Shown here is a 99-nucleotide sequence, a member of the family "RT-17 RNA". It is annotated as a small RNA.
[Rfam]
RNA sequence: UGCCUUGCCACAUGGCAAAACAUAACAAUUCAAUAUCCUGUGUUAGUAGACUUUGAAAGUUAAGAUUCAAAGGUUGAACGCUUGGGGGAUUGCAUACAC
Numbered sequence: 001u002g003c004c005u006u007g008c009c010a011c012a013u014g015g016c017a018a019a020a021c022a023u024a025a026c027a028a029u030u031c032a033a034u035a036u037c038c039u040g041u042g043u044u045a046g047u048a049g050a051c052u053u054u055g056a057a058a059g060u061u062a063a064g065a066u067u068c069a070a071a072g073g074u075u076g077a078a079c080g081c082u083u084g085g086g087g088g089a090u091u092g093c094a095u096a097c098a099c
Stems, first nucleotide, its partner, number of pairs: 006017004042081002049075001052071006
Dot-bracket structure: .....((((....))))........................((.....(..((((((........))))))...)....))..................